[Rfam]
RNA sequence: AUUCCUCAGCCUUACUCCAGGGGCUUUUGUUUUGUAUAGAGUGCCCUGGCAUUGCCUGAGGAUAAAUUGAAAGUAUGCUCAUUUCCCUCCCCAUGAGAUUCUCAGUAUCCUCUGGGGCCUACAAUCUGAGCAAACAUU
Numbered sequence: 001a002u003u004c005c006u007c008a009g010c011c012u013u014a015c016u017c018c019a020g021g022g023g024c025u026u027u028u029g030u031u032u033u034g035u036a037u038a039g040a041g042u043g044c045c046c047u048g049g050c051a052u053u054g055c056c057u058g059a060g061g062a063u064a065a066a067u068u069g070a071a072a073g074u075a076u077g078c079u080c081a082u083u084u085c086c087c088u089c090c091c092c093a094u095g096a097g098a099u100u101c102u103c104a105g106u107a108u109c110c111u112c113u114g115g116g117g118c119c120u121a122c123a124a125u126c127u128g129a130g131c132a133a134a135c136a137u138u
Stems, first nucleotide, its partner, number of pairs: 003062007011054001017049006023042005076132003080128002089117005096111002
Small nucleolar RNA SNORA49: a 138-nucleotide sequence from Merops nubicus. It scores 109 bits against the family's covariance model. The family's consensus secondary structure was predicted with RNAalifold. The family's RNA type in Rfam is H/ACA-box small nucleolar RNA. The snoRNA ACA49 has no identified RNA target. NB genomic sequence 1-nt different from published.